RNA sequence: GUUUUUUAAAGGCAAACUUUCCGAAAGGAGAGGACGCAAAACCACGGGCCUAAAGGAGAAAUCCGAUGGCGGCCGGGUUGCCUUA
Numbered sequence: 001g002u003u004u005u006u007u008a009a010a011g012g013c014a015a016a017c018u019u020u021c022c023g024a025a026a027g028g029a030g031a032g033g034a035c036g037c038a039a040a041a042c043c044a045c046g047g048g049c050c051u052a053a054a055g056g057a058g059a060a061a062u063c064c065g066a067u068g069g070c071g072g073c074c075g076g077g078u079u080g081c082c083u084u085a
Stems, first nucleotide, its partner, number of pairs: 012037002017032006040079004045075003048070003055064003